A member of the RNA family "pan motif" from Paenibacillus curdlanolyticus, 132 nucleotides long.

[Rfam]
RNA sequence: AAGGCGGUAUCCGUUUUCAUGGAAUCGCACUUGCAGGGCAUUAUCCUUUCAUUCUAAUUUUUAGCACGGAAGCGGGUUUAUGAUGACGCGUGCGCAACUCUGCUCUGAGCCGUUAGGGACCGAGACAGAAGG
Numbered sequence: 001a002a003g004g005c006g007g008u009a010u011c012c013g014u015u016u017u018c019a020u021g022g023a024a025u026c027g028c029a030c031u032u033g034c035a036g037g038g039c040a041u042u043a044u045c046c047u048u049u050c051a052u053u054c055u056a057a058u059u060u061u062u063a064g065c066a067c068g069g070a071a072g073c074g075g076g077u078u079u080a081u082g083a084u085g086a087c088g089c090g091u092g093c094g095c096a097a098c099u100c101u102g103c104u105c106u107g108a109g110c111c112g113u114u115a116g117g118g119a120c121c122g123a124g125a126c127a128g129a130a131g132g
Stems, first nucleotide, its partner, number of pairs: 001032003004028005010023004100128003103124003107120001110118002
The organism belongs to Paenibacillus curdlanolyticus, within Bacteria.